[Rfam]
RNA sequence: GUGAGGCGGCUGGCUUGCUGACGAAGUCAGCAACUCUAAUGCCAGCCGCCGACCUGCCGCCGAGCGGAGGCGAGGGGGCACUACAAUGU
Numbered sequence: 001g002u003g004a005g006g007c008g009g010c011u012g013g014c015u016u017g018c019u020g021a022c023g024a025a026g027u028c029a030g031c032a033a034c035u036c037u038a039a040u041g042c043c044a045g046c047c048g049c050c051g052a053c054c055u056g057c058c059g060c061c062g063a064g065c066g067g068a069g070g071c072g073a074g075g076g077g078g079c080a081c082u083a084c085a086a087u088g089u
Stems, first nucleotide, its partner, number of pairs: 008047006016032006056079003060075002064071002